[Rfam]
RNA: MIR4371 microRNA precursor family
RNA sequence: UCGUUAAGUGAUAACGUAACAGAUGGAGUGUCACAUCAUCACACUUAAUCACUAACACGUCAGUGGCACAUCAUUGAGAGUGAUGACAUGACAAUGAGGUAUUGAUGACAAUGCAUGAUGACAUGAUACUCUGUCUGUCACGUCAUCACUUAAAGGAA
Numbered sequence: 001u002c003g004u005u006a007a008g009u010g011a012u013a014a015c016g017u018a019a020c021a022g023a024u025g026g027a028g029u030g031u032c033a034c035a036u037c038a039u040c041a042c043a044c045u046u047a048a049u050c051a052c053u054a055a056c057a058c059g060u061c062a063g064u065g066g067c068a069c070a071u072c073a074u075u076g077a078g079a080g081u082g083a084u085g086a087c088a089u090g091a092c093a094a095u096g097a098g099g100u101a102u103u104g105a106u107g108a109c110a111a112u113g114c115a116u117g118a119u120g121a122c123a124u125g126a127u128a129c130u131c132u133g134u135c136u137g138u139c140a141c142g143u144c145a146u147c148a149c150u151u152a153a154a155g156g157a158a
Stems, first nucleotide, its partner, number of pairs: 001156002004153009014143004019138015036121006044113001046111001049108003054103002057100002071086004